[Rfam]
RNA: Small nucleolar RNA U109
Organism: Octodon degus
RNA sequence: UUGCAUGUGGACACGUCCGCCCCUCGCUUUGGGCGUGGAAGUGUAUCCGUAGCAUGCUACAUGAAUAGAGGACUUCUCAGGGCUGCCAACCUUACAGUAGAGGUUGAGUGGUAGUAUAUUUCUCCUACACAG
Numbered sequence: 001u002u003g004c005a006u007g008u009g010g011a012c013a014c015g016u017c018c019g020c021c022c023c024u025c026g027c028u029u030u031g032g033g034c035g036u037g038g039a040a041g042u043g044u045a046u047c048c049g050u051a052g053c054a055u056g057c058u059a060c061a062u063g064a065a066u067a068g069a070g071g072a073c074u075u076c077u078c079a080g081g082g083c084u085g086c087c088a089a090c091c092u093u094a095c096a097g098u099a100g101a102g103g104u105u106g107a108g109u110g111g112u113a114g115u116a117u118a119u120u121u122c123u124c125c126u127a128c129a130c131a132g
Stems, first nucleotide, its partner, number of pairs: 003057006016039005022033002070125003082112002086108001087106007